Shown here is a 101-nucleotide sequence from Colocasia esculenta, a member of the family "Small nucleolar RNA snoR109". A reference for the family is Marker et al. (2002), "Experimental RNomics: identification of 140 candidates for small non-messenger RNAs in the plant Arabidopsis thaliana", Curr Biol. Gene Ontology terms of the family: nucleolus and RNA processing. The family's consensus secondary structure was predicted with WAR. Rfam classes the family as an H/ACA-box small nucleolar RNA.
RNA sequence: UGGCUGUAGCCACAUGAACCAGUUCUUAUCAUAGGGAAGAAAACUGGCCGGUGGUUGUCCAUACGUCAAUAUUGCCACCGCUUACUGAUCUUCCUAUAUAU
Numbered sequence: 001u002g003g004c005u006g007u008a009g010c011c012a013c014a015u016g017a018a019c020c021a022g023u024u025c026u027u028a029u030c031a032u033a034g035g036g037a038a039g040a041a042a043a044c045u046g047g048c049c050g051g052u053g054g055u056u057g058u059c060c061a062u063a064c065g066u067c068a069a070u071a072u073u074g075c076c077a078c079c080g081c082u083u084a085c086u087g088a089u090c091u092u093c094c095u096a097u098a099u100a101u
Base pairs, nucleotide, nucleotide: 034095035094036093037092038091039090040089046082047081048080050079051078052077053076054070055069056068057067
Dot-bracket structure: .................................(((((((.....(((.((((((((.........)))).....)))))))......)))))))......